[Rfam]
RNA sequence: UUAGAUGUGGAUUGCUUCAUUACGAUCAGAGUCACAAUUCGUAGUGGAAAAGUAAAAAAACCGACCUCACCAGUCGGUUUUUUUAC
Number, nucleotide and partner (000 for none) at each position: 001u000002u000003a000004g000005a000006u000007g000008u000009g000010g000011a000012u000013u000014g000015c000016u000017u000018c000019a000020u000021u049022a000023c047024g000025a045026u044027c000028a000029g040030a039031g038032u000033c000034a000035c000036a000037a000038u031039u030040c029041g000042u000043a000044g026045u025046g000047g023048a000049a021050a000051a000052g000053u000054a083055a082056a081057a080058a079059a078060a000061c077062c076063g075064a074065c073066c000067u000068c000069a000070c000071c000072a000073g065074u064075c063076g062077g061078u059079u058080u057081u056082u055083u054084u000085a000086c000